[Rfam]
RNA: Y RNA
Organism: Chlorocebus sabaeus
RNA sequence: GACUGGUCCAAGUGCAAUGAUGUUUGCAACUAAUUGAUCACAACCAGUUAUAGAUUUCUUUGUUCCUUCUCUACUUCCACUGCGUCACAUGACUAGCCUUAA
Dot-bracket structure: (.((((((.(...(.(.((........(((.((.........................)).))).............)).)....)...))))))).)....
Numbered sequence: 001g002a003c004u005g006g007u008c009c010a011a012g013u014g015c016a017a018u019g020a021u022g023u024u025u026g027c028a029a030c031u032a033a034u035u036g037a038u039c040a041c042a043a044c045c046a047g048u049u050a051u052a053g054a055u056u057u058c059u060u061u062g063u064u065c066c067u068u069c070u071c072u073a074c075u076u077c078c079a080c081u082g083c084g085u086c087a088c089a090u091g092a093c094u095a096g097c098c099u100u101a102a
Stems, first nucleotide, its partner, number of pairs: 001098001003096006010090001014086001016081001018079002028064003032060002